[Rfam]
RNA sequence: AUUAAAUAAUGCAACAUUCGUCGUAUAACGUCGGGAAUAGGGCCCGAAAGUUUCUACCAAGCCACCGUAAAUGGCUUGACUACGAGGUACUGAAUAAAUCUA
Numbered sequence: 001a002u003u004a005a006a007u008a009a010u011g012c013a014a015c016a017u018u019c020g021u022c023g024u025a026u027a028a029c030g031u032c033g034g035g036a037a038u039a040g041g042g043c044c045c046g047a048a049a050g051u052u053u054c055u056a057c058c059a060a061g062c063c064a065c066c067g068u069a070a071a072u073g074g075c076u077u078g079a080c081u082a083c084g085a086g087g088u089a090c091u092g093a094a095u096a097a098a099u100c101u102a
Stems, first nucleotide, its partner, number of pairs: 019087001021085005031047005058078007
Source information
Purine riboswitch aptamer: a 102-nucleotide RNA sequence from Jeotgalibacillus campisalis. The source organism's lineage runs through Bacteria, Bacillati, Bacillota, Caryophanaceae and Jeotgalibacillus. The family's consensus secondary structure is taken from published work. It scores 87 bits against the family's covariance model.